[Rfam]
Overview:
A member of the RNA family "Bacterial large subunit ribosomal RNA" from Allobrachymonas denitrificans, 561 nucleotides of a longer RNA. Gene Ontology terms of the family: structural constituent of ribosome and ribosome. A search with the family's covariance model found it, with a score of 2763 bits. The family's consensus secondary structure is taken from published work.

RNA sequence: GACUAAGAGCAUGUGGUGGAUGCCUUGGCGAUGAUAGGCGAAGAAAGACGUGAUAGCCUGCGAAAAGCCUGGGGGAGCUGGCAAAUAAGCUUUGAUCCCGGGAUCUCUGAAUGGGGAAACCCACCCGCGAGGGUAUCCGUAUCUGAAUACAUAGGAUACGGAGGCGAACCGAGUGAACUGAAACAUCUAAGUAGCUCGAGGAAAAGACAUCAACCGAGAUUGCGAAAGUAGUGGCGAGCGAAAUCGCAGGAGCCUGGCAAAGAUAGCAUUCUUCUUAGCAAAACAGUCUGGAAAGGCUGGCCAUAGCAGGUGAUAGCCCUGUAUGCGAAAAGAGGAGUGUGGUACUAAGUUGCGAACAAGUAGGGCGGGACACGUGAAAUCCUGUCUGAACAUGGGGGGACCAUCCUCCAAGGCUAAAUACUCAUCAUCGACCGAUAGUGAACCAGUACCGUGAGGGAAAGGCGAAAAGAACCCCGGGAGGGGAGUGAAAUAGAUCCUGAAACCGCAUGCUUACAAAAAGUAGGAGCCCUUUGGGGUGACUGCGUACCUUUUGUAUAAUGG
Numbered sequence: 001g002a003c004u005a006a007g008a009g010c011a012u013g014u015g016g017u018g019g020a021u022g023c024c025u026u027g028g029c030g031a032u033g034a035u036a037g038g039c040g041a042a043g044a045a046a047g048a049c050g051u052g053a054u055a056g057c058c059u060g061c062g063a064a065a066a067g068c069c070u071g072g073g074g075g076a077g078c079u080g081g082c083a084a085a086u087a088a089g090c091u092u093u094g095a096u097c098c099c100g101g102g103a104u105c106u107c108u109g110a111a112u113g114g115g116g117a118a119a120c121c122c123a124c125c126c127g128c129g130a131g132g133g134u135a136u137c138c139g140u141a142u143c144u145g146a147a148u149a150c151a152u153a154g155g156a157u158a159c160g161g162a163g164g165c166g167a168a169c170c171g172a173g174u175g176a177a178c179u180g181a182a183a184c185a186u187c188u189a190a191g192u193a194g195c196u197c198g199a200g201g202a203a204a205a206g207a208c209a210u211c212a213a214c215c216g217a218g219a220u221u222g223c224g225a226a227a228g229u230a231g232u233g234g235c236g237a238g239c240g241a242a243a244u245c246g247c248a249g250g251a252g253c254c255u256g257g258c259a260a261a262g263a264u265a266g267c268a269u270u271c272u273u274c275u276u277a278g279c280a281a282a283a284c285a286g287u288c289u290g291g292a293a294a295g296g297c298u299g300g301c302c303a304u305a306g307c308a309g310g311u312g313a314u315a316g317c318c319c320u321g322u323a324u325g326c327g328a329a330a331a332g333a334g335g336a337g338u339g340u341g342g343u344a345c346u347a348a349g350u351u352g353c354g355a356a357c358a359a360g361u362a363g364g365g366c367g368g369g370a371c372a373c374g375u376g377a378a379a380u381c382c383u384g385u386c387u388g389a390a391c392a393u394g395g396g397g398g399g400a401c402c403a404u405c406c407u408c409c410a411a412g413g414c415u416a417a418a419u420a421c422u423c424a425u426c427a428u429c430g431a432c433c434g435a436u437a438g439u440g441a442a443c444c445a446g447u448a449c450c451g452u453g454a455g456g457g458a459a460a461g462g463c464g465a466a467a468a469g470a471a472c473c474c475c476g477g478g479a480g481g482g483g484a485g486u487g488a489a490a491u492a493g494a495u496c497c498u499g500a501a502a503c504c505g506c507a508u509g510c511u512u513a514c515a516a517a518a519a520g521u522a523g524g525a526g527c528c529c530u531u532u533g534g535g536g537u538g539a540c541u542g543c544g545u546a547c548c549u550u551u552u553g554u555a556u557a558a559u560g561g
Base pairs, nucleotide, nucleotide: 007512008511009510010509011508012507013506014505015504016503022497023462024461027433028432029430030429031428032427033426034425035424036422037421038165039164046108047107048106049062050061051060068102069101070100071099072098073097074096077090078089079088113122114121115120123134124133125132126131136162137161138160139159140158141157142156143155144154169200170198171197172196173195174194180187181186210217211216220418221248222247223246224245225244231239232238251415252414253413254412257353258352259351260350264342266340267339268338269337270336271335272334273333274332275331276330278326279325280324284299285298286297287296288295302306308320309319310318363387364386365385366384367383368382369381370380394409395408396407397406398405449456450455472483473482474481475480520543521542522541523540526537527536528535529534547560549558